[Rfam]
RNA: mir-9242 microRNA precursor family
Organism: Myotis myotis
RNA sequence: GGCCUCCCUCUUUGGGGCAAUCGAUCCUGGGGCUCCGCGAUUGAUCGCCCAGUAGAGGGAGGCC
Dot-bracket structure: (((((((((((.(.((((.(((((((.(((....))).))))))).)))).).)))))))))))